[Rfam]
RNA sequence: CGACCACGCGCGGGAGAGUCCCCGGUCGCCGGGGCGCCGAAGGAGCAAGUCCUCCCUUGAAUCUCUCAGGCCCCGUACCGCGCGCGGGAU
Numbered sequence: 001c002g003a004c005c006a007c008g009c010g011c012g013g014g015a016g017a018g019u020c021c022c023c024g025g026u027c028g029c030c031g032g033g034g035c036g037c038c039g040a041a042g043g044a045g046c047a048a049g050u051c052c053u054c055c056c057u058u059g060a061a062u063c064u065c066u067c068a069g070g071c072c073c074c075g076u077a078c079c080g081c082g083c084g085c086g087g088g089a090u
Stems, first nucleotide, its partner, number of pairs: 007084007020034004036071003039067002043065003049058001
Shown here is a 90-nucleotide RNA from Streptomyces marincola, a member of the family "Glycine riboswitch aptamer".
The base pairs follow the family's consensus structure.
The match comes from Rfam's covariance-model search (62 bits).